[Rfam]
RNA sequence: GUUCUGAAAAUGAGAGUUGGAAUGAACUGAACUUUUUACUUCAAAUAGUUGGAUUAAAUGAGUUCAGUUUUCUCCAACAUCUCAUAUUCAGUUU
Numbered sequence: 001g002u003u004c005u006g007a008a009a010a011u012g013a014g015a016g017u018u019g020g021a022a023u024g025a026a027c028u029g030a031a032c033u034u035u036u037u038a039c040u041u042c043a044a045a046u047a048g049u050u051g052g053a054u055u056a057a058a059u060g061a062g063u064u065c066a067g068u069u070u071u072c073u074c075c076a077a078c079a080u081c082u083c084a085u086a087u088u089c090a091g092u093u094u
Stems, first nucleotide, its partner, number of pairs: 004091005011084004016078006024070007032062002
The record is a 94-nucleotide sequence from Carex littledalei, which matches "MIR2275 microRNA precursor family" in Rfam. The source organism's lineage runs through Eukaryota, Viridiplantae, Tracheophyta, Spermatophyta and Carex subgen. Euthyceras. Rfam 15.1 lists 785 matches to the family in 111 species. Its family is annotated with RISC complex and miRNA-mediated post-transcriptional gene silencing in the Gene Ontology.